[Rfam]
A member of the RNA family "L13-Bacteroidia ribosomal protein leader", 73 nucleotides long. Rfam's curators put it in the seed alignment.

RNA sequence: AGUGGCCUCUUUUGAGGCACUAUCUGCGUGUUAAUAGCUACGUUCUUUGGCCGAACGUGGUGGUUAGUGAAUC
Numbered sequence: 001a002g003u004g005g006c007c008u009c010u011u012u013u014g015a016g017g018c019a020c021u022a023u024c025u026g027c028g029u030g031u032u033a034a035u036a037g038c039u040a041c042g043u044u045c046u047u048u049g050g051c052c053g054a055a056c057g058u059g060g061u062g063g064u065u066a067g068u069g070a071a072u073c
Stems, first nucleotide, its partner, number of pairs: 001021004006017004031067005037061009
The literature on the family includes a 2020 paper in BMC Microbiol by Eckert and Weinberg, "Discovery of 20 novel ribosomal leader candidates in bacteria and archaea".